[Rfam]
RNA: Small nucleolar RNA R160
RNA sequence: AGCAAAAUGAUGAAACUUGCUUAAAAUCUGAAUCCCCCGUGUGGGAAUCCCAUUCUGGGUCUUCAAAGUUCUCUGAUUGCU
Dot-bracket structure: (((((.......................................................................)))))
Numbered sequence: 001a002g003c004a005a006a007a008u009g010a011u012g013a014a015a016c017u018u019g020c021u022u023a024a025a026a027u028c029u030g031a032a033u034c035c036c037c038c039g040u041g042u043g044g045g046a047a048u049c050c051c052a053u054u055c056u057g058g059g060u061c062u063u064c065a066a067a068g069u070u071c072u073c074u075g076a077u078u079g080c081u
Stems, first nucleotide, its partner, number of pairs: 001081005